[Rfam]
RNA: L13-Bacteroidia ribosomal protein leader
Organism: Prevotella sp. CAG:924
RNA sequence: GCGGAGGACACUUAGACCUCCGCAGCUCCGUUGUGUGGAUAGUCCUGUCUCUGGCCGGGCGGGACGGUUCGUGAAUC
Numbered sequence: 001g002c003g004g005a006g007g008a009c010a011c012u013u014a015g016a017c018c019u020c021c022g023c024a025g026c027u028c029c030g031u032u033g034u035g036u037g038g039a040u041a042g043u044c045c046u047g048u049c050u051c052u053g054g055c056c057g058g059g060c061g062g063g064a065c066g067g068u069u070c071g072u073g074a075a076u077c
Stems, first nucleotide, its partner, number of pairs: 001023006036071005042065009